[Rfam]
RNA sequence: UCGGCUUCCUGUUCACGGCGACCGCCGCCGACCAGGCGACC
Numbered sequence: 001u002c003g004g005c006u007u008c009c010u011g012u013u014c015a016c017g018g019c020g021a022c023c024g025c026c027g028c029c030g031a032c033c034a035g036g037c038g039a040c041c
Stems, first nucleotide, its partner, number of pairs: 003041002006039001008036004016030005
Dot-bracket structure: ..((.(.((((....(((((.....)))))..))))..)))
This 41-nucleotide RNA sequence belongs to the Rfam family "L31-Actinobacteria ribosomal protein leader". Its Rfam clan is "Ribosomal Protein L31 Leader clan". By type it is a cis-regulatory leader. It is one of the family's seed sequences.